Rfam assigns this 92-nucleotide sequence from Nyssa sinensis to the family "MIR535 microRNA precursor family". Rfam 15.1 lists 544 matches to the family in 108 species. Rfam links the family to the GO terms miRNA-mediated post-transcriptional gene silencing and RISC complex. The organism belongs to Nyssa, within Eukaryota.
[Rfam]
RNA sequence: CAAAUUGUAUGACAAUGAGAGAGAGCAUGCUUGUGCACAAUCAUGUCCUGUGCAUGAAUGUUGACAAGCGUGCUUUCUCUUGUUAUAAAGUA
Numbered sequence: 001c002a003a004a005u006u007g008u009a010u011g012a013c014a015a016u017g018a019g020a021g022a023g024a025g026c027a028u029g030c031u032u033g034u035g036c037a038c039a040a041u042c043a044u045g046u047c048c049u050g051u052g053c054a055u056g057a058a059u060g061u062u063g064a065c066a067a068g069c070g071u072g073c074u075u076u077c078u079c080u081u082g083u084u085a086u087a088a089a090g091u092a
Stems, first nucleotide, its partner, number of pairs: 010085005020078002023075001025073010